[Rfam]
RNA sequence: GCGGAAGGCUGGAUGGCCGCGGGGGUCCGCCCCCGAGGAAAGUCCGGACUCCACAAGACAACGGUGCCGGGUAACGCCCGGCCGGGGAAACCCGAGGGAAAGCGCCACAGAGAACAGACCGCCCCGCAGCUGCGAAAGCGUCUGCACGGGUAAGGGUGAAACGGUGGAGUAAGAGCCCACCGCGGGGCUGGCAACAGCCCCGGCAUGGCAAGCCCCACCGGGAGCAAUGCCGAAUAGGGAUCGCGCGCGGGGGUCUGGUCGGGCAACCGAUACCGCCCGCAGGGACGUCUUGCCCCAGCGAUCCGGGUUGGCAGCUUGAGGUGUCGUGGCAACACGGCGCCCAGACGAAUGGUCAUCCAAGGGGGCGACCCCUGGACAGAAUCCGGCUUACAGGCCUUCCGCGCAU
Numbered sequence: 001g002c003g004g005a006a007g008g009c010u011g012g013a014u015g016g017c018c019g020c021g022g023g024g025g026u027c028c029g030c031c032c033c034c035g036a037g038g039a040a041a042g043u044c045c046g047g048a049c050u051c052c053a054c055a056a057g058a059c060a061a062c063g064g065u066g067c068c069g070g071g072u073a074a075c076g077c078c079c080g081g082c083c084g085g086g087g088a089a090a091c092c093c094g095a096g097g098g099a100a101a102g103c104g105c106c107a108c109a110g111a112g113a114a115c116a117g118a119c120c121g122c123c124c125c126g127c128a129g130c131u132g133c134g135a136a137a138g139c140g141u142c143u144g145c146a147c148g149g150g151u152a153a154g155g156g157u158g159a160a161a162c163g164g165u166g167g168a169g170u171a172a173g174a175g176c177c178c179a180c181c182g183c184g185g186g187g188c189u190g191g192c193a194a195c196a197g198c199c200c201c202g203g204c205a206u207g208g209c210a211a212g213c214c215c216c217a218c219c220g221g222g223a224g225c226a227a228u229g230c231c232g233a234a235u236a237g238g239g240a241u242c243g244c245g246c247g248c249g250g251g252g253g254u255c256u257g258g259u260c261g262g263g264c265a266a267c268c269g270a271u272a273c274c275g276c277c278c279g280c281a282g283g284g285a286c287g288u289c290u291u292g293c294c295c296c297a298g299c300g301a302u303c304c305g306g307g308u309u310g311g312c313a314g315c316u317u318g319a320g321g322u323g324u325c326g327u328g329g330c331a332a333c334a335c336g337g338c339g340c341c342c343a344g345a346c347g348a349a350u351g352g353u354c355a356u357c358c359a360a361g362g363g364g365g366c367g368a369c370c371c372c373u374g375g376a377c378a379g380a381a382u383c384c385g386g387c388u389u390a391c392a393g394g395c396c397u398u399c400c401g402c403g404c405a406u
Base pairs, nucleotide, nucleotide: 001402002401003400004399005398006397007396008395009394010393011391012357013356014355015354016353017352018351020035021034022033023032024031025030040389041388042387044386045385046384047383048382049224050223051222052221057291058290060288062220063219064218065217066216067081068080069079070078071077082096083094084093085092086091097215098214102213103212104209105208106207119155120154121151122150123149124148126145127144128143129142163181164180165179166178167177182204183202184201185200186199187198188197189196190195228313229312230311231310238304239303240302241301242300243299282296283295284294286292321340322339323338324337325336326335327334328333
This 406-nucleotide RNA sequence from Roseobacter sp. AzwK-3b belongs to the Rfam family "Bacterial RNase P class A". Taxonomically the source falls in Roseobacter (Bacteria, Pseudomonadati, Pseudomonadota, Alphaproteobacteria). The family's consensus secondary structure is taken from published work. Rfam classes the family as a ribozyme. The sequence is in the family's curated seed alignment. Gene Ontology terms of the family: ribonuclease P activity, dimeric ribonuclease P complex and tRNA processing.